[Rfam]
RNA: Small nucleolar RNA Z155
Organism: Kalanchoe fedtschenkoi
RNA sequence: GAUUGAGAUGAGGAUAAAGCUGUCUGAAUAUCACCAUGCGGACUAAACUACAGACUACAAUUAUCUGAUCAAUC
Dot-bracket structure: ((((((..............................................................))))))
Numbered sequence: 001g002a003u004u005g006a007g008a009u010g011a012g013g014a015u016a017a018a019g020c021u022g023u024c025u026g027a028a029u030a031u032c033a034c035c036a037u038g039c040g041g042a043c044u045a046a047a048c049u050a051c052a053g054a055c056u057a058c059a060a061u062u063a064u065c066u067g068a069u070c071a072a073u074c
Stems, first nucleotide, its partner, number of pairs: 001074006